[Rfam]
RNA sequence: CAGGGUACGCUUCGACCUUCCUUAGUUCAAACAAAUGAACUAGAUUUUCGAAAAGUUACAUGCCAUUUUGAAAUUUUAGUUCAUUUGGUUGAACUAAGGAGGGUCGAAGUGUACCCUG
Numbered sequence: 001c002a003g004g005g006u007a008c009g010c011u012u013c014g015a016c017c018u019u020c021c022u023u024a025g026u027u028c029a030a031a032c033a034a035a036u037g038a039a040c041u042a043g044a045u046u047u048u049c050g051a052a053a054a055g056u057u058a059c060a061u062g063c064c065a066u067u068u069u070g071a072a073a074u075u076u077u078a079g080u081u082c083a084u085u086u087g088g089u090u091g092a093a094c095u096a097a098g099g100a101g102g103g104u105c106g107a108a109g110u111g112u113a114c115c116c117u118g
Base pairs, nucleotide, nucleotide: 002117003116004115005114006113007112008111009110010109011108012107013106014105015104016103017102018101019100020099021098022097023096024095025094026093027092028091029090030089032087033086034085035084036083037082038081039080040079041078042077043076

A member of the RNA family "MIR5070 microRNA precursor family" from Brachypodium distachyon, 118 nucleotides long. The family is grouped with related families in Rfam's "MIR2863 microRNA precursor clan". Pairs were carried over by alignment from the consensus structure, which was predicted with RNAalifold. The family has 2 seed sequences and 266 matches in Rfam 15.1. Its family is annotated with RISC complex and miRNA-mediated post-transcriptional gene silencing in the Gene Ontology. Lineage of the source: Eukaryota > Streptophytina > Magnoliopsida > Mesangiospermae > Brachypodium.